Iron response element I: a 35-nucleotide sequence from Pipistrellus kuhlii. By type it is a cis-regulatory element. Its family is annotated with response to iron ion in the Gene Ontology. The base pairs follow the family's consensus structure, which is taken from published work. The source organism's lineage runs through Eukaryota, Dipnotetrapodomorpha, Theria, Eutheria and Pipistrellus.

[Rfam]
RNA sequence: CUGUCUCUCGCUUCAGCAGUGUUUGGACGGAACAG
Numbered sequence: 001c002u003g004u005c006u007c008u009c010g011c012u013u014c015a016g017c018a019g020u021g022u023u024u025g026g027a028c029g030g031a032a033c034a035g
Base pairs, nucleotide, nucleotide: 001035002034003033004032006031007030008029010028012027013026014025015024016023017021